Rfam assigns this 119-nucleotide sequence to the family "DUF3800-I RNA". Rfam's curators put it in the seed alignment. About the family: Actinobacteria, Firmicutes, Fusobacteria, Proteobacteria (1 example), Tenericutes (2 examples).
RNA sequence: UAUAGUUACAGGUAGAAGUACGCUGUACACUUGUGUAACUGAAUUAACGUUUAAGCGAAGUGUAUUCUUCGUCAGUCGCAAGGGGGUCGCUUAUUUAAUAGGUGACCUUAUUUUUUUUG
Numbered sequence: 001u002a003u004a005g006u007u008a009c010a011g012g013u014a015g016a017a018g019u020a021c022g023c024u025g026u027a028c029a030c031u032u033g034u035g036u037a038a039c040u041g042a043a044u045u046a047a048c049g050u051u052u053a054a055g056c057g058a059a060g061u062g063u064a065u066u067c068u069u070c071g072u073c074a075g076u077c078g079c080a081a082g083g084g085g086g087u088c089g090c091u092u093a094u095u096u097a098a099u100a101g102g103u104g105a106c107c108u109u110a111u112u113u114u115u116u117u118u119g
Stems, first nucleotide, its partner, number of pairs: 007027005012021003030082006038076004042051003055072006083109012